A member of the RNA family "MIR1846 microRNA precursor family" from Oryza glumipatula, 99 nucleotides long.
It scores 82 bits against the family's covariance model.
On this family, see Xue et al., Nucleic Acids Res 2009: "Characterization and expression profiles of miRNAs in rice seeds".
Rfam links the family to the GO terms RISC complex and miRNA-mediated post-transcriptional gene silencing.
RNA sequence: CCUCCCAAUGAGCUGCCAGAUCUCCCAGUGAGGAGGCCAGGGCCAUCGGAUCCGGUGACCCCGGUCUCCUCGCCGGCGGAUCCGGCGCUCAGACGCCAA
Numbered sequence: 001c002c003u004c005c006c007a008a009u010g011a012g013c014u015g016c017c018a019g020a021u022c023u024c025c026c027a028g029u030g031a032g033g034a035g036g037c038c039a040g041g042g043c044c045a046u047c048g049g050a051u052c053c054g055g056u057g058a059c060c061c062c063g064g065u066c067u068c069c070u071c072g073c074c075g076g077c078g079g080a081u082c083c084g085g086c087g088c089u090c091a092g093a094c095g096c097c098a099a
Stems, first nucleotide, its partner, number of pairs: 001095001006092001010090004015086003019082005025076002028073011040061003044057005
Description: The base pairs follow the family's consensus structure, which was predicted with RNAalifold.